[Rfam]
RNA sequence: CACGAGAAAGGCAAACCAGUCGCAAGGCUGGGACGCAAAGCUCCGGGUCAGUGUCGGUAACACGUCGCUGAUGGCCGAGCUGCCGAAU
Numbered sequence: 001c002a003c004g005a006g007a008a009a010g011g012c013a014a015a016c017c018a019g020u021c022g023c024a025a026g027g028c029u030g031g032g033a034c035g036c037a038a039a040g041c042u043c044c045g046g047g048u049c050a051g052u053g054u055c056g057g058u059a060a061c062a063c064g065u066c067g068c069u070g071a072u073g074g075c076c077g078a079g080c081u082g083c084c085g086a087a088u
Stems, first nucleotide, its partner, number of pairs: 003085002011036002016031006034074001039081004044077003047072007